[Rfam]
RNA sequence: AAAUGAGUUAGUCUCCGAGCUUAUGAUCCUAAGGAUAUUUCUACGGAUUAUGAGCCUGGACUAUGAGUCCACAGGGUACUUUAGGAAACAAAAGUGCCUCCACGUUUUUAGGAAAGGAGAUGGGUUAAAAUUGUA
Numbered sequence: 001a002a003a004u005g006a007g008u009u010a011g012u013c014u015c016c017g018a019g020c021u022u023a024u025g026a027u028c029c030u031a032a033g034g035a036u037a038u039u040u041c042u043a044c045g046g047a048u049u050a051u052g053a054g055c056c057u058g059g060a061c062u063a064u065g066a067g068u069c070c071a072c073a074g075g076g077u078a079c080u081u082u083a084g085g086a087a088a089c090a091a092a093a094g095u096g097c098c099u100c101c102a103c104g105u106u107u108u109u110a111g112g113a114a115a116g117g118a119g120a121u122g123g124g125u126u127a128a129a130a131u132u133g134u135a
Base pairs, nucleotide, nucleotide: 004128006126011121012120013119014118015117016116019055020054021053022052023051024050025049026048027047028046029045033042034041035040057071058070059069060068061067074099075098076097077096078095079094080093081092082091084089100112101111
This 135-nucleotide sequence from Clostridium carboxidivorans belongs to the Rfam family "Molybdenum/Tungsten riboswitch aptamer (Moco RNA motif)". It scores 98 bits against the family's covariance model. NCBI's taxonomy places the organism under Bacteria, Bacillati, Bacillota, Clostridium, Clostridium carboxidivorans.